[Rfam]
RNA sequence: AGGGGGCAGUUCUAAAAUUGAUAUGCCAAUCCCGAUACAAUCUUCCUAAAUUAAAAUUUGUCCAUUUCCUGCUUGUGUUAUUCUAGAGAGUACCACAAGCCUCACUUGACAAAAACAAA
Numbered sequence: 001a002g003g004g005g006g007c008a009g010u011u012c013u014a015a016a017a018u019u020g021a022u023a024u025g026c027c028a029a030u031c032c033c034g035a036u037a038c039a040a041u042c043u044u045c046c047u048a049a050a051u052u053a054a055a056a057u058u059u060g061u062c063c064a065u066u067u068c069c070u071g072c073u074u075g076u077g078u079u080a081u082u083c084u085a086g087a088g089a090g091u092a093c094c095a096c097a098a099g100c101c102u103c104a105c106u107u108g109a110c111a112a113a114a115a116c117a118a119a
Stems, first nucleotide, its partner, number of pairs: 002032002005027004010023001058112001071100007080091003
The record is a 119-nucleotide RNA from Carex littledalei, which matches "Small nucleolar RNA snoR104" in Rfam. By type it is an H/ACA-box small nucleolar RNA. The literature on the family includes a 2002 paper in Curr Biol by Marker et al., "Experimental RNomics: identification of 140 candidates for small non-messenger RNAs in the plant Arabidopsis thaliana". The match comes from Rfam's covariance-model search (67 bits). Lineage of the source: Eukaryota > Mesangiospermae > Liliopsida > Cariceae > Carex subgen. Euthyceras.